[Rfam]
RNA: mir-16 microRNA precursor family
RNA sequence: UCCCACCAGGAGCAGCACAGAAGUAAGGGUGGCAGUACCAUACCAUGCCACCCUUAUUUCUGUGCUGCUGCUGGCAGCA
Numbered sequence: 001u002c003c004c005a006c007c008a009g010g011a012g013c014a015g016c017a018c019a020g021a022a023g024u025a026a027g028g029g030u031g032g033c034a035g036u037a038c039c040a041u042a043c044c045a046u047g048c049c050a051c052c053c054u055u056a057u058u059u060c061u062g063u064g065c066u067g068c069u070g071c072u073g074g075c076a077g078c079a
Stems, first nucleotide, its partner, number of pairs: 001079001003077001006074002010072001011069008020059001022058008